[Rfam]
RNA sequence: GAUCGCCCAAUCGGGGGUCGACAAGUCCAGGAGGCGCCCUGUGCUCUUGGCGUCUCCUUGUAUCCAUGUUGCUUGUAAGGAGGAUAUGGUUAUGAGGA
Numbered sequence: 001g002a003u004c005g006c007c008c009a010a011u012c013g014g015g016g017g018u019c020g021a022c023a024a025g026u027c028c029a030g031g032a033g034g035c036g037c038c039c040u041g042u043g044c045u046c047u048u049g050g051c052g053u054c055u056c057c058u059u060g061u062a063u064c065c066a067u068g069u070u071g072c073u074u075g076u077a078a079g080g081a082g083g084a085u086a087u088g089g090u091u092a093u094g095a096g097g098a
Stems, first nucleotide, its partner, number of pairs: 001019004006015002031056008057096006064089007072082003
RNA: Repression of heat shock gene expression (ROSE) element